The record is a 78-nucleotide RNA, which matches "caiA RNA" in Rfam.
RNA sequence: GGUACAUCGGGGGAGUGAAGCAUCCACAUUUCCCCAUGUUAUACAUGAUACAAUUCACAAGGAGGAACUAAAAACAUG
Numbered sequence: 001g002g003u004a005c006a007u008c009g010g011g012g013g014a015g016u017g018a019a020g021c022a023u024c025c026a027c028a029u030u031u032c033c034c035c036a037u038g039u040u041a042u043a044c045a046u047g048a049u050a051c052a053a054u055u056c057a058c059a060a061g062g063a064g065g066a067a068c069u070a071a072a073a074a075c076a077u078g
Stems, first nucleotide, its partner, number of pairs: 004039004009035009

Background
The family's RNA type in Rfam is small RNA. The sequence is in the family's curated seed alignment. The base pairs follow the family's consensus structure, which is taken from published work.